[Rfam]
Shown here is a 115-nucleotide sequence from Actinocrispum wychmicini, a member of the family "SAM riboswitch aptamer (S box leader)". The match comes from Rfam's covariance-model search (82 bits). The organism belongs to Actinocrispum, within Bacteria. Gene Ontology term of the family: regulation of gene expression.
RNA sequence: CGCUCAUCCAGAGGGGCAGAGGGAUCGGCCCGUAGAAGCCCCGGCAACCAGCGCUCACCGUUCACGGUGGCGUACAGGUGCCAAUUCCGACCCGCGACAGCGGGAAAGAUGAGGA
Number, nucleotide and partner (000 for none) at each position: 001c000002g000003c113004u112005c111006a110007u109008c108009c000010a000011g000012a000013g042014g041015g040016g039017c038018a000019g000020a000021g031022g030023g029024a000025u090026c089027g088028g087029c023030c022031c021032g000033u000034a000035g000036a000037a000038g017039c016040c015041c014042c013043g082044g081045c080046a079047a000048c078049c077050a000051g073052c072053g071054c070055u069056c000057a000058c000059c000060g000061u000062u000063c000064a000065c000066g000067g000068u000069g055070g054071c053072g052073u051074a000075c000076a000077g049078g048079u046080g045081c044082c043083a000084a000085u000086u107087c028088c027089g026090a025091c104092c103093c102094g101095c100096g000097a000098c000099a000100g095101c094102g093103g092104g091105a000106a000107a086108g008109a007110u006111g005112a004113g003114g000115a000